[Rfam]
A member of the RNA family "LOOT RNA", 117 nucleotides long.
RNA sequence: AGCCUAAACCUUUAGCAAUAAAGGCAUGGUGAACAAGUCGUAUAAGGCAUAAAGAACCCAUCAGGGGGUCGCCUUAUACGCCAUGUCAGGAAACUGGCAUGAGAGACUUCGGUCUCU
Numbered sequence: 001a002g003c004c005u006a007a008a009c010c011u012u013u014a015g016c017a018a019u020a021a022a023g024g025c026a027u028g029g030u031g032a033a034c035a036a037g038u039c040g041u042a043u044a045a046g047g048c049a050u051a052a053a054g055a056a057c058c059c060a061u062c063a064g065g066g067g068g069u070c071g072c073c074u075u076a077u078a079c080g081c082c083a084u085g086u087c088a089g090g091a092a093a094c095u096g097g098c099a100u101g102a103g104a105g106a107c108u109u110c111g112g113u114c115u116c117u
Base pairs, nucleotide, nucleotide: 002030003029004028009024010023011022012021013020014019039080040079041078042077043076044075045074046073047072048071054070055069057067058066059065082101083100084099085098086097087096088095089094102117103116104115105114106113107112
It is annotated as a small RNA.